[Rfam]
RNA sequence: GCUGGAGUGGCGCAAUCGGUAGCGCAACGCACUUGUAAUGCGUAGGUUGCGAGUUCAAGUCUCGUCUCCAGCU
Numbered sequence: 001g002c003u004g005g006a007g008u009g010g011c012g013c014a015a016u017c018g019g020u021a022g023c024g025c026a027a028c029g030c031a032c033u034u035g036u037a038a039u040g041c042g043u044a045g046g047u048u049g050c051g052a053g054u055u056c057a058a059g060u061c062u063c064g065u066c067u068c069c070a071g072c073u
Stems, first nucleotide, its partner, number of pairs: 001072007010025004027043005049065005
This 73-nucleotide RNA sequence from Corynebacterium efficiens belongs to the Rfam family "tRNA". It scores 72 bits against the family's covariance model. It is annotated as a transfer RNA. The organism belongs to Corynebacterium efficiens, within Bacteria. Its Rfam clan is "tRNA clan".